[Rfam]
c-di-GMP-I riboswitch aptamer: a 125-nucleotide RNA from Paenibacillus piri. About the family: GEMM was predicted in a large-scale screen for bacterial structured RNA regulatory elements. The source organism's lineage runs through Bacteria, Bacillota, Bacilli, Paenibacillaceae and Paenibacillus. A search with the family's covariance model found it, with a score of 71 bits.

RNA sequence: ACAGUAUAAAGGCAAACCUAGUCGAAAGAUAGGGACGCAAAGCCACGGGCCUAAGCCGUCGGAAAUGCAAGGAACAUAUAAUGUUCCAACCGCAUUUUUGAGCGGAUGGCAGCCGGGUUGCCGAA
Numbered sequence: 001a002c003a004g005u006a007u008a009a010a011g012g013c014a015a016a017c018c019u020a021g022u023c024g025a026a027a028g029a030u031a032g033g034g035a036c037g038c039a040a041a042g043c044c045a046c047g048g049g050c051c052u053a054a055g056c057c058g059u060c061g062g063a064a065a066u067g068c069a070a071g072g073a074a075c076a077u078a079u080a081a082u083g084u085u086c087c088a089a090c091c092g093c094a095u096u097u098u099u100g101a102g103c104g105g106a107u108g109g110c111a112g113c114c115g116g117g118u119u120g121c122c123g124a125a
Stems, first nucleotide, its partner, number of pairs: 012038002017033004022029002041119004046115003049110003056105003
Dot-bracket structure: ...........((...((((.((....))))))...))..((((.((((((....(((............................................)))..)))..)))))))......